[Rfam]
RNA sequence: AAACGUUCACCUUGUUAUCCGGCAAGGCGCAGUACGACCCAGGUCAUGGAACGGGGGCCUGGG
Number, nucleotide and partner (000 for none) at each position: 001a000002a000003a000004c053005g052006u051007u050008c049009a000010c027011c026012u025013u024014g023015u000016u000017a000018u000019c000020c000021g000022g000023c014024a013025a012026g011027g010028c000029g000030c000031a000032g000033u000034a000035c000036g000037a000038c063039c062040c061041a060042g059043g058044u056045c055046a000047u000048g000049g008050a007051a006052c005053g004054g000055g045056g044057g000058c043059c042060u041061g040062g039063g038

Description
A member of the RNA family "Glutamine-II riboswitch aptamer" from Synechococcus sp. KORDI-100, 63 nucleotides long. NCBI's taxonomy places the organism under Bacteria, Cyanobacteriota, Cyanophyceae, Synechococcaceae, Synechococcus. On this family, see Huang et al., Nucleic Acids Res 2019: "Structure and ligand binding of the glutamine-II riboswitch". The family's consensus secondary structure is taken from published work.